Shown here is a 32-nucleotide sequence from Muntiacus reevesi, a member of the family "Iron response element II". By type it is a cis-regulatory element. The literature on the family includes a 1996 paper in Proc Natl Acad Sci U S A by Gray et al., "Translational regulation of mammalian and Drosophila citric acid cycle enzymes via iron-responsive elements". Rfam 15.1 lists 5,197 matches to the family in 722 species. The base pairs follow the family's consensus structure, which is taken from published work. Rfam links the family to the GO term response to iron ion. The match comes from Rfam's covariance-model search (32 bits). Rfam describes the family as follows. IRE, TFRC, SLC40A1, SDHB, SLC11A2, CDC42BPA, ACO2, ALAS2_H.SAPIENS, CDC14A, EPAS1, ALAS2, qoxD, Hao1, NDUFS1, transferrin, Aconitate.
RNA sequence: UGAUUAUCAUAGACAGUGUUUAUAUACAAUUA
Numbered sequence: 001u002g003a004u005u006a007u008c009a010u011a012g013a014c015a016g017u018g019u020u021u022a023u024a025u026a027c028a029a030u031u032a
Stems, first nucleotide, its partner, number of pairs: 001032005007026001009025003012021002014018001